The record is an 85-nucleotide RNA from Halalkalibacter wakoensis, which matches "c-di-GMP-I riboswitch aptamer" in Rfam. Gene Ontology term of the family: cyclic-di-GMP binding. The match comes from Rfam's covariance-model search (83 bits). The family's consensus secondary structure is taken from published work.
RNA sequence: AUAUGAAAAAGGCAAACUAUUUGAAAAGAUAGGACGCAAAGCUUAGGGUCUAAGGUAGCAAUACUAUGAUCGCCUGGUUACCAAU
Numbered sequence: 001a002u003a004u005g006a007a008a009a010a011g012g013c014a015a016a017c018u019a020u021u022u023g024a025a026a027a028g029a030u031a032g033g034a035c036g037c038a039a040a041g042c043u044u045a046g047g048g049u050c051u052a053a054g055g056u057a058g059c060a061a062u063a064c065u066a067u068g069a070u071c072g073c074c075u076g077g078u079u080a081c082c083a084a085u
Base pairs, nucleotide, nucleotide: 012037013036017032018031019030020029021028022027040079041078042077043076045075046074047073048070049069050068055064056063057062